[Rfam]
Nucleotides: 046
Stems, first nucleotide, its partner, number of pairs: 006021006
Number, partner (000 for none) and nucleotide at each position: 001000c002000c003000u004000a005000a006021g007020g008019c009018u010017c011016u012000u013000u014000u015000a016011a017010g018009a019008g020007c021006c022000a023000u024000c025000c026000a027000c028000a029000u030000u031000u032000u033000u034000u035000a036000u037000u038000u039000u040000u041000u042000u043000a044000u045000u046000u
The record is a 46-nucleotide RNA sequence from Oncorhynchus tshawytscha, which matches "Histone 3' UTR stem-loop" in Rfam. Lineage of the source: Eukaryota > Eumetazoa > Craniata > Salmonidae > Oncorhynchus. The match comes from Rfam's covariance-model search (37 bits). Rfam classes the family as a cis-regulatory element. Rfam describes the family as follows. The mRNAs of metazoan histone genes lack a poly-A tail. 3' end processing occurs at a site between a highly conserved stem-loop (modelled by this family) and a purine rich region around 20 nts downstream (the histone downstream element, or HDE). The stem-loop is bound by a 31 kDa stem-loop binding protein (SLBP - also termed the histone hairpin binding protein, or HBP). Together with U7 snRNA binding of the HDE, SLBP binding nucleate s the formation of the processing complex.